The family of this 274-nucleotide RNA sequence from Mus spicilegus is "Mason-Pfizer monkey virus packaging signal". Pairs were carried over by alignment from the consensus structure, which was predicted with PFOLD. Rfam 15.1 lists 2,921 matches to the family in 53 species.

[Rfam]
RNA sequence: UGGCGCCCAACAGUGGAGCUCAAGUACAAACGGACCAGUGAACCUAACAGCAGUGUGUUUGGUCGGCCAAUGAAUUUUGUGUGGAAGACUUCGUUCACGGGAACCUGCCUCCUCAGCUAGGGAUCCUGAUAAGUUUGCAGUGACCAUGGGACAGACUUGAGUAGCCAUGAAUUAUUUGUGGAAGGAUUGAAAAAGGGUUUAAAGGCACGAGGGUUAAAGGUUAAAAUAAAUGAUUUGCUUGCAUUUUUUGAUUUUGCUAAAGAGAUUUUCCUUU
Dot-bracket structure: .....((.....(((.........)))....))....((.......)).....................................((..(..(((...((.......)).....)).)...)...)).......((.(.((....)).)))......(((.(.................................)..)))......((((((.(..((((((.......))))))......).))))))........((((.(....).))))